[Rfam]
RNA: Actinobacteria sRNA Ms_AS-4
RNA sequence: CUUGACCGAGGCGUAGCGGGUGGGAUCGUCACCGAACUUCGGCGAGUACCCGGGCGCCGAGGACCUGCCCAAGUCCCGGCUGG
Number, nucleotide and partner (000 for none) at each position: 001c000002u000003u000004g000005a000006c000007c000008g000009a000010g043011g000012c041013g040014u000015a000016g000017c000018g039019g038020g037021u035022g000023g033024g032025a000026u000027c000028g000029u000030c000031a000032c024033c023034g000035a021036a000037c020038u019039u018040c013041g012042g000043c010044g000045a000046g000047u000048a000049c000050c000051c000052g000053g000054g000055c000056g080057c079058c078059g000060a000061g076062g075063a074064c073065c000066u000067g000068c000069c000070c000071a000072a000073g064074u063075c062076c061077c000078g058079g057080c056081u000082g000083g000